[Rfam]
RNA sequence: AAGAUAAUAUCACCUUUGGUGAGUUAUACUUUUCGUAGUGUCAUUUGUUAUAUUUUUCACAACUGCCUGGAUCUGAAGAGGACCGGGACGGUGAC
Number, nucleotide and partner (000 for none) at each position: 001a031002a030003g029004a027005u026006a025007a024008u023009a000010u022011c021012a020013c019014c000015u000016u000017u000018g000019g013020u012021g011022a010023g008024u007025u006026a005027u004028a000029c003030u002031u001032u000033u000034c000035g000036u000037a000038g000039u000040g000041u000042c000043a000044u000045u000046u000047g000048u000049u000050a000051u000052a000053u000054u000055u000056u000057u000058c000059a000060c000061a000062a000063c091064u090065g089066c087067c086068u085069g084070g083071a000072u082073c081074u080075g000076a000077a000078g000079a000080g074081g073082a072083c070084c069085g068086g067087g066088a000089c065090g064091g063092u000093g000094a000095c000
RNA: pan motif
Organism: Megasphaera sp. AM44-1BH